[Rfam]
This 109-nucleotide RNA sequence from Cnephaeus nilssonii belongs to the Rfam family "mir-9261 microRNA precursor family". The source organism's lineage runs through Eukaryota, Bilateria, Deuterostomia, Eutheria and Cnephaeus. Rfam links the family to the GO terms miRNA-mediated post-transcriptional gene silencing and RISC complex. The family has 3 seed sequences and 196 matches in Rfam 15.1. A search with the family's covariance model found it, with a score of 97 bits.
RNA sequence: AACAAUUUGUCCCGCGUCCCACGGCGUUUUUAAAAAGUUUUUUUUUUUUUAACAAUUUGUCCCUAUGGGACUUUUUAAAAACGCCGUGGGACGCGGGACAAAUUGUUAA
Numbered sequence: 001a002a003c004a005a006u007u008u009g010u011c012c013c014g015c016g017u018c019c020c021a022c023g024g025c026g027u028u029u030u031u032a033a034a035a036a037g038u039u040u041u042u043u044u045u046u047u048u049u050u051a052a053c054a055a056u057u058u059g060u061c062c063c064u065a066u067g068g069g070a071c072u073u074u075u076u077a078a079a080a081a082c083g084c085c086g087u088g089g090g091a092c093g094c095g096g097g098a099c100a101a102a103u104u105g106u107u108a109a
Base pairs, nucleotide, nucleotide: 001107002106003105004104005103006102007101008100009099010098011097012096013095014094015093016092017091018090019089020088021087022086023085024084025083026082027081028080029079030078031077032076033075034074035073036072037071038070039069040068041067